[Rfam]
RNA: Bacterial large signal recognition particle RNA
Organism: [Bacteroides] pectinophilus
Nucleotides: 263
Base pairs, nucleotide, nucleotide: 001263002262003261004260005259006258007257008056009055010054011029012028013027014026015025016024017023018022033053034052035051036050037049061256062255063254064253065252066251070247072245073244074243076241077240078239080237081236082235083234084233085232089227090226093224094223095222096221101217102216103214104213105212112208113207114206115205116204117203118202120197121196122195123194124193125192126188127187129186130185131184132183133182135178136177137176138175139174145170146169147168148167153162154161155160
Number, partner (000 for none) and nucleotide at each position: 001263c002262c003261a004260c005259g006258c007257g008056g009055c010054u011029g012028g013027g014026g015025a016024g017023u018022c019000a020000g021000c022018g023017g024016u025015u026014c027013c028012c029011u030000g031000u032000a033053c034052c035051u036050g037049c038000a039000a040000u041000c042000c043000g044000c045000u046000a047000u048000a049037g050036c051035a052034g053033g054010a055009g056008u057000u058000a059000u060000a061256c062255u063254u064253u065252g066251c067000c068000u069000c070247g071000g072245a073244c074243a075000g076241c077240a078239a079000c080237g081236g082235a083234u084233g085232g086000a087000g088000c089227u090226g091000c092000c093224c094223g095222g096221a097000a098000g099000a100000a101217g102216u103214g104213g105212u106000g107000u108000u109000g110000a111000c112208g113207c114206u115205u116204g117203g118202g119000c120197c121196u122195u123194u124193c125192g126188c127187a128000a129186c130185a131184g132183g133182a134000a135178u136177u137176c138175a139174u140000g141000a142000a143000c144000c145170a146169u147168g148167u149000c150000a151000g152000g153162a154161c155160g156000g157000g158000a159000a160155c161154g162153u163000a164000g165000c166000a167148g168147c169146a170145u171000u172000a173000a174139g175138u176137g177136a178135a179000a180000c181000c182133u183132u184131c185130u186129g187127u188126g189000u190000g191000c192125c193124g194123g195122a196121a197120g198000c199000a200000a201000a202118c203117c204116u205115g206114a207113g208112c209000c210000g211000a212105g213104c214103u215000a216102a217101c218000u219000g220000g221096u222095c223094c224093g225000g226090u227089a228000a229000c230000g231000u232085c233084u234083g235082u236081u237080u238000u239078u240077u241076g242000u243074u244073g245072u246000a247070c248000a249000a250000a251066g252065c253064a254063a255062a256061g257007u258006g259005c260004g261003u262002g263001g